A member of the RNA family "Small nucleolar RNA SNORA79" from Holothuria leucospilota, 132 nucleotides long. Taxonomically the source falls in Holothuria (Eukaryota, Eleutherozoa, Echinozoa, Aspidochirotida). About the family: ACA65 (SNORA79) is a member of the H/ACA class of snoRNAs that guide the sites of modification of uridines to pseudouridines. This snoRNA was identified by computational screening and its expression in mouse experimentally verified by Northern blot and primer extension analysis. The family's consensus secondary structure was predicted with RNAalifold. The family has 25 seed sequences and 944 matches in Rfam 15.1. By type it is an H/ACA-box small nucleolar RNA. The literature on the family includes a 2006 paper in RNA by Schattner et al., "A computational screen for mammalian pseudouridylation guide H/ACA RNAs".
[Rfam]
RNA sequence: UGAUGACUGUUCCUUCCAUCAACCCUAGUUUUGGAGGUGGAAUUUUAUGUCAUCAGAGAUAAGUCAUGUGAGCCUCUUCACUUAGACUUGCUUUAAGUCAAUGCAAGACUGAUUUUGCCGGCUCAUACAUUC
Numbered sequence: 001u002g003a004u005g006a007c008u009g010u011u012c013c014u015u016c017c018a019u020c021a022a023c024c025c026u027a028g029u030u031u032u033g034g035a036g037g038u039g040g041a042a043u044u045u046u047a048u049g050u051c052a053u054c055a056g057a058g059a060u061a062a063g064u065c066a067u068g069u070g071a072g073c074c075u076c077u078u079c080a081c082u083u084a085g086a087c088u089u090g091c092u093u094u095a096a097g098u099c100a101a102u103g104c105a106a107g108a109c110u111g112a113u114u115u116u117g118c119c120g121g122c123u124c125a126u127a128c129a130u131u132c
Stems, first nucleotide, its partner, number of pairs: 001055007014042005020036001023033001070124005082112004087107005